This 76-nucleotide RNA from Nostoc sp. PCC 7107 belongs to the Rfam family "Fluoride riboswitch aptamer (crcB RNA motif)".
RNA sequence: AAGAACAGUGGUGAUGAAACUCGCCUUCUGGAAUAACCAGAAAACCGCCUGUGGGGCUGAUAGUUUCUAGUUCAAU
Numbered sequence: 001a002a003g004a005a006c007a008g009u010g011g012u013g014a015u016g017a018a019a020c021u022c023g024c025c026u027u028c029u030g031g032a033a034u035a036a037c038c039a040g041a042a043a044a045c046c047g048c049c050u051g052u053g054g055g056g057c058u059g060a061u062a063g064u065u066u067c068u069a070g071u072u073c074a075a076u
Base pairs, nucleotide, nucleotide: 010025011024012023013022016067017066018065019064020063021062047057048056049055